A member of the RNA family "Y RNA" from Aotus nancymaae, 109 nucleotides long. The match comes from Rfam's covariance-model search (56 bits). The organism belongs to Aotus, within Eukaryota. Rfam's curators write: Y RNAs are components of the Ro ribonucleoprotein particle (Ro RNP), in association with Ro60 and La proteins. The Y RNAs and Ro60 and La proteins are well conserved, but the function of the Ro RNP is not known.

RNA sequence: GGCUAGUCCUAGGGUAGUCAGUUAUCUCAACUGAUCACAGUCAGUUACAUAUUGAACUCCUUGUUCUAAUCUUUUCCCCCUUCCCACUACUAAACUUGACUACUCUUAA
Numbered sequence: 001g002g003c004u005a006g007u008c009c010u011a012g013g014g015u016a017g018u019c020a021g022u023u024a025u026c027u028c029a030a031c032u033g034a035u036c037a038c039a040g041u042c043a044g045u046u047a048c049a050u051a052u053u054g055a056a057c058u059c060c061u062u063g064u065u066c067u068a069a070u071c072u073u074u075u076c077c078c079c080c081u082u083c084c085c086a087c088u089a090c091u092a093a094a095c096u097u098g099a100c101u102a103c104u105c106u107u108a109a
Stems, first nucleotide, its partner, number of pairs: 001105002004102005011096001015092001016088003021083001040070002043067002